RNA: Small nucleolar RNA U83B
RNA sequence: GCUGUUCUGUGAUCAGGCCUAGAAUGUUUACCGGGCGCUGGAGUCAGACAAGGAACCAUUCCCUGUUGUCUUCCUUCUGAGAAACCCUGCAGU
Numbered sequence: 001g002c003u004g005u006u007c008u009g010u011g012a013u014c015a016g017g018c019c020u021a022g023a024a025u026g027u028u029u030a031c032c033g034g035g036c037g038c039u040g041g042a043g044u045c046a047g048a049c050a051a052g053g054a055a056c057c058a059u060u061c062c063c064u065g066u067u068g069u070c071u072u073c074c075u076u077c078u079g080a081g082a083a084a085c086c087c088u089g090c091a092g093u
Stems, first nucleotide, its partner, number of pairs: 001093005